Rfam assigns this 229-nucleotide RNA sequence from Neospora caninum to the family "ACEA small nucleolar RNA U3".
RNA sequence: UCGACUGUACUCGAACAGGAUCACUUCUAUAGUAGAUCCGCUUGUUCACCUGCACAGCGACAGACAACACCUUAAGUCGUGAAGAUGAGUUGUACAUCCCGCCAUCCCUUGAAGGGAGGCUCCCUGUGCGAUGGACGUCUCUGACUGACUUCCACAGGGCAGCUUUGAUGAUACUGGGGCAGCUGGUGAAAGCCGCCUGCUCCAAUGGCGAGGAUGAUUCUGAACGACA
Numbered sequence: 001u002c003g004a005c006u007g008u009a010c011u012c013g014a015a016c017a018g019g020a021u022c023a024c025u026u027c028u029a030u031a032g033u034a035g036a037u038c039c040g041c042u043u044g045u046u047c048a049c050c051u052g053c054a055c056a057g058c059g060a061c062a063g064a065c066a067a068c069a070c071c072u073u074a075a076g077u078c079g080u081g082a083a084g085a086u087g088a089g090u091u092g093u094a095c096a097u098c099c100c101g102c103c104a105u106c107c108c109u110u111g112a113a114g115g116g117a118g119g120c121u122c123c124c125u126g127u128g129c130g131a132u133g134g135a136c137g138u139c140u141c142u143g144a145c146u147g148a149c150u151u152c153c154a155c156a157g158g159g160c161a162g163c164u165u166u167g168a169u170g171a172u173a174c175u176g177g178g179g180c181a182g183c184u185g186g187u188g189a190a191a192g193c194c195g196c197c198u199g200c201u202c203c204a205a206u207g208g209c210g211a212g213g214a215u216g217a218u219u220c221u222g223a224a225c226g227a228c229a
Stems, first nucleotide, its partner, number of pairs: 002040002006035001008034004017028004045069001051063001076228005095216005100210006110173002118164003123158006180199003185194001
A search with the family's covariance model found it, with a score of 125 bits. The family is grouped with related families in Rfam's "U3 clan". From the family's description: Small nucleolar RNAs (snoRNAs) are involved in the processing and modification of rRNA in the nucleolus. There are two main classes of snoRNAs: the box C/D class, and the box H/ACA class. U3 snoRNA is a member of the box C/D class. Indeed, the box C/D element is a subset of the six short sequence elements found in all U3 snoRNAs, namely boxes A, A', B, C, C', and D. The U3 snoRNA secondary structure is characterised by a small 5' domain (with boxes A and A'), and a larger 3' domain (with boxes B, C, C', and D), the two domains being linked by a single-stranded hinge. Boxes B and C form the B/C motif, which appears to be exclusive to U3 snoRNAs, and boxes C' and D form the C'/D motif. The latter is functionally similar to the C/D motifs found in other snoRNAs. The 5' domain and the hinge region act as a pre-rRNA-binding domain. The 3' domain has conserved protein-binding sites. Both the box B/C and box C'/D motifs are sufficient for nuclear retention of U3 snoRNA. The box C'/D motif is also necessary for nucleolar localisation, stability and hyper-methylation of U3 snoRNA. Both box B/C and C'/D motifs are involved in specific protein interactions and are necessary for the rRNA processing functions of U3 snoRNA.